[Rfam]
RNA sequence: AUCAGCAACAAUUAGGGGAGAUACCGUGAUCAAGAAGGCGGUUCACCCAAGGCGAGGCUCAGCCAUUGCACUUCGGCUGUGCUGACCCCUGCGAAUUCCCCAAAUGUGGGAAUCUCGACUGCAUAAUUUCUGGUAGUGGGGGACUGCGUUCGCGCUCUCCCCUG
Numbered sequence: 001a002u003c004a005g006c007a008a009c010a011a012u013u014a015g016g017g018g019a020g021a022u023a024c025c026g027u028g029a030u031c032a033a034g035a036a037g038g039c040g041g042u043u044c045a046c047c048c049a050a051g052g053c054g055a056g057g058c059u060c061a062g063c064c065a066u067u068g069c070a071c072u073u074c075g076g077c078u079g080u081g082c083u084g085a086c087c088c089c090u091g092c093g094a095a096u097u098c099c100c101c102a103a104a105u106g107u108g109g110g111a112a113u114c115u116c117g118a119c120u121g122c123a124u125a126a127u128u129u130c131u132g133g134u135a136g137u138g139g140g141g142g143a144c145u146g147c148g149u150u151c152g153c154g155c156u157c158u159c160c161c162c163u164g
Stems, first nucleotide, its partner, number of pairs: 013121003016048003020044002023042005049090001051088002054086001056083003060079005092117003095113003099109002138163006146155003

Background
Shown here is a 164-nucleotide RNA sequence from Denticeps clupeoides, a member of the family "U1 spliceosomal RNA". A search with the family's covariance model found it, with a score of 132 bits. Its Rfam clan is "U1 clan". Taxonomically the source falls in Denticeps (Eukaryota, Vertebrata, Euteleostomi, Denticipitoidei). A reference for the family is Zwieb (1997), "The uRNA database", Nucleic Acids Res. It is annotated as a spliceosomal small nuclear RNA.